[Rfam]
RNA sequence: UGGAGGGUGCUCCUUGAGCUGGUUCGGAUAGUGACGUCGUAAUCCCUAUCCUCCCAGCUCAGGGGCACUUUUCAGCUCACACCACCAGCUCGAGCACCACUGUCCCGUG
Numbered sequence: 001u002g003g004a005g006g007g008u009g010c011u012c013c014u015u016g017a018g019c020u021g022g023u024u025c026g027g028a029u030a031g032u033g034a035c036g037u038c039g040u041a042a043u044c045c046c047u048a049u050c051c052u053c054c055c056a057g058c059u060c061a062g063g064g065g066c067a068c069u070u071u072u073c074a075g076c077u078c079a080c081a082c083c084a085c086c087a088g089c090u091c092g093a094g095c096a097c098c099a100c101u102g103u104c105c106c107g108u109g
Stems, first nucleotide, its partner, number of pairs: 002073012015061003019057004026051004031046001033044002104109001